[Rfam]
RNA sequence: GCAUUUCGCUAGGGGUGUUGCCAGGCUUUUAAUGAAAGCGGGUGACUGAGAAAGUCCCUUUGAACCUGACUGAGGUAAUCCUCGCGCAGGGAAGCAAGUCUGAACAUAG
Numbered sequence: 001g002c003a004u005u006u007c008g009c010u011a012g013g014g015g016u017g018u019u020g021c022c023a024g025g026c027u028u029u030u031a032a033u034g035a036a037a038g039c040g041g042g043u044g045a046c047u048g049a050g051a052a053a054g055u056c057c058c059u060u061u062g063a064a065c066c067u068g069a070c071u072g073a074g075g076u077a078a079u080c081c082u083c084g085c086g087c088a089g090g091g092a093a094g095c096a097a098g099u100c101u102g103a104a105c106a107u108a109g
Base pairs, nucleotide, nucleotide: 006097008095009094010093011059012058013057014056016053017046018045019044020043021042065090066089067088068087071084072083073082074081
This 109-nucleotide sequence from Rhodoferax ferrireducens belongs to the Rfam family "TPP riboswitch aptamer (THI element)". The base pairs follow the family's consensus structure, which is taken from published work. A search with the family's covariance model found it, with a score of 59 bits.